[Rfam]
RNA sequence: CUGGUGGGGGUUUGCGAUCCCCUCAUGAGGCGACAUGCCCAAGAAUCGCGCCCCGUUUUCACAAGGGCGCACGCAUG
Numbered sequence: 001c002u003g004g005u006g007g008g009g010g011u012u013u014g015c016g017a018u019c020c021c022c023u024c025a026u027g028a029g030g031c032g033a034c035a036u037g038c039c040c041a042a043g044a045a046u047c048g049c050g051c052c053c054c055g056u057u058u059u060c061a062c063a064a065g066g067g068c069g070c071a072c073g074c075a076u077g
Stems, first nucleotide, its partner, number of pairs: 005025006048070006

A member of the RNA family "chrB-a RNA", 77 nucleotides long. It is one of the family's seed sequences.